[Rfam]
RNA sequence: AGACAGAGAGACCAGGUCACGUCUCUGCAGUUACACAGCUCAUGAGUGCCUGCUGGGGUGGAACCUGGUUUGUCU
Numbered sequence: 001a002g003a004c005a006g007a008g009a010g011a012c013c014a015g016g017u018c019a020c021g022u023c024u025c026u027g028c029a030g031u032u033a034c035a036c037a038g039c040u041c042a043u044g045a046g047u048g049c050c051u052g053c054u055g056g057g058g059u060g061g062a063a064c065c066u067g068g069u070u071u072g073u074c075u
Stems, first nucleotide, its partner, number of pairs: 001075006011069007020060006027053004034048003
Shown here is a 75-nucleotide RNA from Rattus norvegicus, a member of the family "mir-370 microRNA precursor family". The base pairs follow the family's consensus structure, which was predicted with RNAalifold. It is one of the family's seed sequences.